Description
The family of this 138-nucleotide RNA from Koleobacter methoxysyntrophicus is "Group II catalytic intron D1-D4-4". The source organism's lineage runs through Bacteria, Bacillota, Clostridia, Koleobacteraceae and Koleobacter.
RNA sequence: UUACUGGUGAAAGUCCAAUCUGAGUAAUCGUUAGGGAGCUCAGUAGCUAACCACUAAGUAUGGAAGAAAUUCUGUGCUUAAAGCGUGGGGAUAAAGUAGCCCGAAAGGGAGCGAGCAAGAGUGCAGGUUGUAACGUAA
Numbered sequence: 001u002u003a004c005u006g007g008u009g010a011a012a013g014u015c016c017a018a019u020c021u022g023a024g025u026a027a028u029c030g031u032u033a034g035g036g037a038g039c040u041c042a043g044u045a046g047c048u049a050a051c052c053a054c055u056a057a058g059u060a061u062g063g064a065a066g067a068a069a070u071u072c073u074g075u076g077c078u079u080a081a082a083g084c085g086u087g088g089g090g091a092u093a094a095a096g097u098a099g100c101c102c103g104a105a106a107g108g109g110a111g112c113g114a115g116c117a118a119g120a121g122u123g124c125a126g127g128u129u130g131u132a133a134c135g136u137a138a
Stems, first nucleotide, its partner, number of pairs: 020043005051088004055080006064071002096112002100108002115131003
About the family: Group II introns are found in rRNA, tRNA and mRNA of organelles in fungi, plants and protists, and also in mRNA in bacteria. The literature on the family includes a 2001 paper in Trends Genet by Bonen and Vogel, "The ins and outs of group II introns". Pairs were carried over by alignment from the consensus structure. Gene Ontology term of the family: Group II intron splicing. It scores 99 bits against the family's covariance model.